Rfam assigns this 84-nucleotide sequence from Gymnopilus junonius to the family "Small nucleolar RNA SNORD24". Pairs were carried over by alignment from the consensus structure, which was predicted with PFOLD. Rfam classes the family as a C/D-box small nucleolar RNA. Rfam 15.1 lists 2,843 matches to the family in 1,188 species.
[Rfam]
RNA sequence: GGCACAUGAUGCUAUAUCUUUAUAUUUGCUACUUCAGAGAGUUCGCUCUAUGAGACCACUUUUUCCACCAAGAUCUCUGAUGCC
Numbered sequence: 001g002g003c004a005c006a007u008g009a010u011g012c013u014a015u016a017u018c019u020u021u022a023u024a025u026u027u028g029c030u031a032c033u034u035c036a037g038a039g040a041g042u043u044c045g046c047u048c049u050a051u052g053a054g055a056c057c058a059c060u061u062u063u064u065c066c067a068c069c070a071a072g073a074u075c076u077c078u079g080a081u082g083c084c
Stems, first nucleotide, its partner, number of pairs: 001084004